[Rfam]
RNA sequence: GGGUCUAUGAUGGCAAACCUAUAUCAUGAAGAGAGAUGGUGACAUACAAACCAUGCUCAAUAGAAUGCGCUGAGGCCC
Numbered sequence: 001g002g003g004u005c006u007a008u009g010a011u012g013g014c015a016a017a018c019c020u021a022u023a024u025c026a027u028g029a030a031g032a033g034a035g036a037u038g039g040u041g042a043c044a045u046a047c048a049a050a051c052c053a054u055g056c057u058c059a060a061u062a063g064a065a066u067g068c069g070c071u072g073a074g075g076c077c078c
Stems, first nucleotide, its partner, number of pairs: 001078004005072001008069002
RNA: Small nucleolar RNA SNORD115
Organism: Peromyscus maniculatus